The record is a 99-nucleotide RNA from Blautia sp. OF03-15BH, which matches "SAM riboswitch aptamer (S box leader)" in Rfam. The source organism's lineage runs through Bacteria, Bacillota, Lachnospirales, Lachnospiraceae and Blautia.

RNA sequence: CUCUUAUUCAGAGUGAUGGAGAUACAUAGGAUCUGUGAAGUCACGGCAACCCCUCGAAGGAAGGUGCCAACCUGAGCGAGUAAUAUCGAACAAUAAGAG
Number, nucleotide and partner (000 for none) at each position: 001c099002u098003c097004u096005u095006a094007u093008u092009c000010a000011g000012a000013g044014u043015g042016a041017u040018g000019g000020a000021g033022a032023u031024a000025c000026a000027u076028a000029g000030g073031a023032u022033c021034u000035g000036u000037g000038a000039a000040g017041u016042c015043a014044c013045g068046g067047c066048a065049a000050c064051c063052c060053c059054u058055c000056g000057a000058a054059g053060g052061a000062a000063g051064g050065u048066g047067c046068c045069a000070a000071c000072c000073u030074g000075a000076g027077c088078g087079a086080g000081u000082a000083a000084u000085a000086u079087c078088g077089a000090a000091c000092a008093a007094u006095a005096a004097g003098a002099g001
It scores 69 bits against the family's covariance model. Pairs were carried over by alignment from the consensus structure, which is taken from published work.